[Rfam]
Shown here is a 76-nucleotide RNA from Alligator mississippiensis, a member of the family "Mammalian CPEB3 ribozyme". NCBI's taxonomy places the organism under Eukaryota, Bilateria, Chordata, Alligatoridae, Alligator. Gene Ontology term of the family: RNA nuclease activity. A reference for the family is Teixeira et al. (2004), "Autocatalytic RNA cleavage in the human beta-globin pre-mRNA promotes transcription termination", Nature. Pairs were carried over by alignment from the consensus structure, which is taken from published work.

RNA sequence: AUUGCAAGUUCACAGGCCACAGCAGAAGUGCUCAUGGCACGCCCUCUCAGAUUCCAGAAAAUCUGUGAAUUCUGCU
Numbered sequence: 001a002u003u004g005c006a007a008g009u010u011c012a013c014a015g016g017c018c019a020c021a022g023c024a025g026a027a028g029u030g031c032u033c034a035u036g037g038c039a040c041g042c043c044c045u046c047u048c049a050g051a052u053u054c055c056a057g058a059a060a061a062u063c064u065g066u067g068a069a070u071u072c073u074g075c076u
Stems, first nucleotide, its partner, number of pairs: 015044002018041001021076007028040003048065006